Notes: The record is a 218-nucleotide RNA from Duffyella gerundensis, which matches "GlmZ RNA activator of glmS mRNA" in Rfam.

[Rfam]
RNA sequence: GCAGUUGCUCAUUCACCUGAUUAUGAAUGCCCUGCGCAAGCGGUCAAGAUGCUCAUAAAAUUCGAAUGACGCACAAAAACGGUGCCUGUCGUCCACUGAACCGAUUAUUGUCUGCGCGUUUGCAGCAUUAUCACAUUCCGGGCGUAACGUUGAGUUAGGCACCACCUUAUUCGGCCUUCUAUGGCCUGGAACGGCAGACUUCGGUCUGCCGUUUUCGA
Numbered sequence: 001g002c003a004g005u006u007g008c009u010c011a012u013u014c015a016c017c018u019g020a021u022u023a024u025g026a027a028u029g030c031c032c033u034g035c036g037c038a039a040g041c042g043g044u045c046a047a048g049a050u051g052c053u054c055a056u057a058a059a060a061u062u063c064g065a066a067u068g069a070c071g072c073a074c075a076a077a078a079a080c081g082g083u084g085c086c087u088g089u090c091g092u093c094c095a096c097u098g099a100a101c102c103g104a105u106u107a108u109u110g111u112c113u114g115c116g117c118g119u120u121u122g123c124a125g126c127a128u129u130a131u132c133a134c135a136u137u138c139c140g141g142g143c144g145u146a147a148c149g150u151u152g153a154g155u156u157a158g159g160c161a162c163c164a165c166c167u168u169a170u171u172c173g174g175c176c177u178u179c180u181a182u183g184g185c186c187u188g189g190a191a192c193g194g195c196a197g198a199c200u201u202c203g204g205u206c207u208g209c210c211g212u213u214u215u216c217g218a
Stems, first nucleotide, its partner, number of pairs: 006073003009069004017064001020056001027050001081163007091143004103132003174185003190213010
The match comes from Rfam's covariance-model search (63 bits). The organism belongs to Duffyella, within Bacteria. Rfam classes the family as a small RNA. Clan: Glm clan. Rfam describes the family as follows. This RNA was discovered in E. coli during a large scale screen. The sraJ gene was expressed in early logarithmic phase, but its level decreased with cell growth. Specific cleavage products of this RNA were found.